[Rfam]
RNA sequence: AUCUACUAACAACCCUAUCCUAUAAAUACUCCCAAAUUUCAUAUCUCAACCGACUAAAAACUCUCCUACCAUCUCGAGGAGGGUUUUUAGUCGGUAGGCGCUCCCUCCAGGAGUGAAUCCGACACUACCUCCCUUGGAGGGUGUCUUUAGAAGAUUUCCCCUCCUCGAGGUUA
Number, nucleotide and partner (000 for none) at each position: 001a000002u000003c000004u000005a000006c000007u000008a000009a000010c000011a000012a000013c000014c000015c000016u000017a000018u000019c000020c000021u000022a000023u000024a000025a000026a000027u000028a000029c000030u053031c052032c000033c000034a000035a000036a000037u000038u000039u000040c000041a000042u000043a000044u000045c000046u000047c000048a000049a000050c000051c000052g031053a030054c000055u000056a000057a000058a000059a172060a171061c170062u169063c000064u000065c000066c000067u000068a000069c000070c000071a000072u000073c000074u000075c167076g166077a165078g164079g163080a000081g160082g159083g158084u000085u000086u000087u000088u000089a000090g123091u122092c121093g120094g119095u000096a000097g000098g000099c115100g114101c113102u112103c111104c110105c000106u000107c000108c000109a000110g104111g103112a102113g101114u100115g099116a000117a000118u000119c094120c093121g092122a091123c090124a000125c143126u000127a000128c140129c139130u138131c137132c136133c000134u000135u000136g132137g131138a130139g129140g128141g000142u000143g125144u000145c000146u000147u000148u000149a000150g000151a000152a000153g000154a000155u000156u000157u000158c083159c082160c081161c000162u000163c079164c078165u077166c076167g075168a000169g062170g061171u060172u059173a000